A member of the RNA family "PyrR binding site" from Lacticaseibacillus saniviri, 125 nucleotides long.
Nucleotides: 125
Base pairs, nucleotide, nucleotide: 003037005035006034007033008032009031013030014029015028016027017026018025038069039068040067042065044063045062046061048059051056082120083119084118085117086116087115088114089113090112091111092110093109094108095107096106097105
Number, partner (000 for none) and nucleotide at each position: 001000a002000a003037g004000a005035c006034c007033u008032u009031u010000a011000a012000u013030u014029a015028a016027g017026u018025c019000c020000a021000g022000a023000g024000a025018g026017g027016c028015u029014u030013a031009g032008a033007a034006g035005g036000a037003c038069c039068g040067g041000a042065c043000c044063c045062g046061c047000u048059g049000c050000g051056g052000u053000g054000g055000g056051c057000a058000a059048c060000u061046g062045u063044g064000u065042g066000a067040c068039u069038g070000a071000g072000g073000a074000c075000c076000a077000a078000a079000c080000u081000a082120a083119a084118g085117u086116c087115g088114c089113c090112u091111u092110c093109u094108a095107u096106u097105c098000u099000c100000g101000a102000a103000c104000u105097g106096g107095a108094u109093a110092g111091a112090a113089g114088g115087c116086g117085a118084c119083u120082u121000u122000u123000u124000u125000u
The source organism's lineage runs through Bacteria, Lactobacillales, Lactobacillaceae, Lacticaseibacillus and Lacticaseibacillus saniviri. Rfam describes the family as follows. This family represents the PyrR binding site and terminator structure. This RNA structure is found upstream of a variety of genes involved in pyrimidine biosynthesis and transport. The alignment also includes a portion of the antiterminator structure.